[Rfam]
RNA sequence: GAUCGCGGUGAUGACUCACUGAAAUUCAAGCUCAACAGACCGGAAUGCAGGCUUCUCUUUCGAGAACUUUGCGUGUCGACCACCCCGCUGAACUGAGCGAUC
Numbered sequence: 001g002a003u004c005g006c007g008g009u010g011a012u013g014a015c016u017c018a019c020u021g022a023a024a025u026u027c028a029a030g031c032u033c034a035a036c037a038g039a040c041c042g043g044a045a046u047g048c049a050g051g052c053u054u055c056u057c058u059u060u061c062g063a064g065a066a067c068u069u070u071g072c073g074u075g076u077c078g079a080c081c082a083c084c085c086c087g088c089u090g091a092a093c094u095g096a097g098c099g100a101u102c
Stems, first nucleotide, its partner, number of pairs: 001102006
Dot-bracket structure: ((((((..........................................................................................))))))